[Rfam]
RNA sequence: GUUGCAAGUCUGAGGCUAUAACAGAAGUGCACACAGUGCAGCCUGUCAGAUUCCAACAAAUCUGUGAAUUCUGCU
Numbered sequence: 001g002u003u004g005c006a007a008g009u010c011u012g013a014g015g016c017u018a019u020a021a022c023a024g025a026a027g028u029g030c031a032c033a034c035a036g037u038g039c040a041g042c043c044u045g046u047c048a049g050a051u052u053c054c055a056a057c058a059a060a061u062c063u064g065u066g067a068a069u070u071c072u073g074c075u
Base pairs, nucleotide, nucleotide: 014043015042016041017040020075022073023072024071025070026069027039028038029037047064048063049062050061051060052059
This 75-nucleotide RNA sequence from Crocodylus porosus belongs to the Rfam family "Mammalian CPEB3 ribozyme".
Taxonomically the source falls in Crocodylus (Eukaryota, Gnathostomata, Euteleostomi, Archelosauria).
A search with the family's covariance model found it, with a score of 45 bits.
Pairs were carried over by alignment from the consensus structure, which is taken from published work.
Rfam links the family to the GO term RNA nuclease activity.